Shown here is a 176-nucleotide RNA sequence from Sporomusaceae bacterium FL31, a member of the family "Lysine riboswitch aptamer".

[Rfam]
RNA sequence: GAUUAAGAUAGAGGUGCGGUUUAGUAAGAGUAUGCUCCUAGAGCUGCCAGUGAUGACAGGUGCAAAAAGGAUUAACCGCCGAAGUAAUGGUUUUUUGGCAGAAAACCAUGCUGGUUCUGUGUUUAACAAAUACAGAAUUGUCAUACGGACAAGUCGUAUGGAGCGCUAUCUUGCAC
Numbered sequence: 001g002a003u004u005a006a007g008a009u010a011g012a013g014g015u016g017c018g019g020u021u022u023a024g025u026a027a028g029a030g031u032a033u034g035c036u037c038c039u040a041g042a043g044c045u046g047c048c049a050g051u052g053a054u055g056a057c058a059g060g061u062g063c064a065a066a067a068a069g070g071a072u073u074a075a076c077c078g079c080c081g082a083a084g085u086a087a088u089g090g091u092u093u094u095u096u097g098g099c100a101g102a103a104a105a106c107c108a109u110g111c112u113g114g115u116u117c118u119g120u121g122u123u124u125a126a127c128a129a130a131u132a133c134a135g136a137a138u139u140g141u142c143a144u145a146c147g148g149a150c151a152a153g154u155c156g157u158a159u160g161g162a163g164c165g166c167u168a169u170c171u172u173g174c175a176c
Stems, first nucleotide, its partner, number of pairs: 006171006016079006023073003033064003037060003083112004088108007113139011141161007
Overview: Lineage of the source: Bacteria > Bacillati > Negativicutes > Selenomonadales > Sporomusaceae. Pairs were carried over by alignment from the consensus structure, which is taken from published work.